Description
This 193-nucleotide RNA belongs to the Rfam family "IMES-1 RNA motif". It is annotated as a non-coding RNA gene. The literature on the family includes a 2009 paper in Nature by Weinberg et al., "Exceptional structured noncoding RNAs revealed by bacterial metagenome analysis". It is one of the family's seed sequences.
[Rfam]
RNA sequence: GGUAAACAAGAUCGGAAAAGGAACUGCAGAACCUAGAACGAGAAAGUUAACCAGGGAGAGACCAGAAAGGUGAAAGUUCAAGGUAGGUUAGCUAGCAUUAAACCAAACUUGACCACCGAGGAUAAAAGAGAUCUUAUCCAAGGAUGCAAGAGGUAAUCUCACUUUUGACACCUACUGAUCUCGAUAGAAAAAA
Number, nucleotide and partner (000 for none) at each position: 001g052002g051003u050004a000005a000006a000007c000008a000009a000010g000011a000012u041013c040014g039015g000016a000017a000018a000019a000020g000021g000022a000023a000024c000025u000026g000027c000028a000029g000030a000031a000032c000033c000034u000035a000036g000037a000038a000039c014040g013041a012042g000043a000044a000045a000046g000047u000048u000049a000050a003051c002052c001053a000054g000055g000056g000057a000058g000059a000060g000061a000062c000063c000064a176065g175066a000067a000068a173069g172070g000071u000072g000073a000074a000075a000076g000077u000078u112079c111080a110081a109082g108083g000084u106085a000086g104087g103088u102089u101090a000091g000092c000093u000094a000095g000096c000097a000098u000099u000100a000101a089102a088103c087104c086105a000106a084107a000108c082109u081110u080111g079112a078113c000114c000115a000116c000117c000118g000119a000120g139121g138122a137123u136124a135125a000126a000127a000128g160129a159130g158131a157132u156133c000134u000135u124136a123137u122138c121139c120140a000141a000142g000143g000144a000145u000146g000147c167148a166149a165150g164151a163152g162153g000154u000155a000156a132157u131158c130159u129160c128161a000162c152163u151164u150165u149166u148167g147168a000169c000170a000171c000172c069173u068174a000175c065176u064177g000178a000179u000180c000181u000182c000183g000184a000185u000186a000187g000188a000189a000190a000191a000192a000193a000